The record is a 174-nucleotide RNA from Streptomyces inusitatus, which matches "c-di-AMP riboswitch aptamer (ydaO/yuaA leader)" in Rfam. It scores 70 bits against the family's covariance model.
RNA sequence: CGCUUGAGUGCGCCGAAGGCAGGAGCGGGGGACCCAGGUAAGCGCCGGGCACCGGCCGUUGGAGACGACGGCGGGAACCGGCUUGGGGUGAAGCCGCGCGCUAGGACGCGCGGCCGGGCAACUCACUUGGCCCGAACCCGACAGCUCACCUCGCAGGCGUCGGUGAGGAGAAGU
Number, nucleotide and partner (000 for none) at each position: 001c000002g000003c000004u000005u000006g000007a000008g000009u000010g000011c159012g158013c157014c156015g000016a000017a000018g000019g000020c000021a000022g000023g000024a000025g154026c153027g152028g151029g150030g149031g000032a000033c000034c000035c085036a084037g083038g082039u081040a000041a000042g000043c000044g000045c000046c000047g000048g000049g000050c000051a000052c000053c000054g000055g000056c000057c000058g000059u000060u000061g000062g000063a000064g000065a000066c000067g000068a000069c000070g000071g000072c000073g000074g000075g000076a000077a000078c000079c000080g000081g039082c038083u037084u036085g035086g139087g138088g137089u000090g000091a000092a000093g000094c113095c112096g111097c110098g109099c108100g000101c000102u000103a000104g000105g000106a000107c000108g099109c098110g097111c096112g095113g094114c000115c000116g133117g132118g131119c130120a000121a000122c000123u000124c000125a000126c000127u000128u000129g000130g119131c118132c117133c116134g000135a000136a000137c088138c087139c086140g000141a000142c000143a000144g000145c000146u000147c000148a000149c030150c029151u028152c027153g026154c025155a000156g014157g013158c012159g011160u000161c000162g000163g000164u000165g000166a000167g000168g000169a000170g000171a000172a000173g000174u000
About this RNA
Rfam links the family to the GO terms regulation of gene expression and cyclic-di-AMP binding.